[Rfam]
RNA sequence: UGAGGUUACAAGUUUGAGGCUAUAGCAGAAGUGCUUAUAGUGCAACCUGUCAGAUUCCAAUGAACCUGUGAAUUCUGCU
Dot-bracket structure: .................[[.[..((((((((((.......)))].]]...(((.(((....))).)))....)))))))
A member of the RNA family "Mammalian CPEB3 ribozyme" from Crocodylus porosus, 79 nucleotides long. The family's consensus secondary structure is taken from published work. The source organism's lineage runs through Eukaryota, Craniata, Vertebrata, Sauria and Crocodylus. It scores 38 bits against the family's covariance model.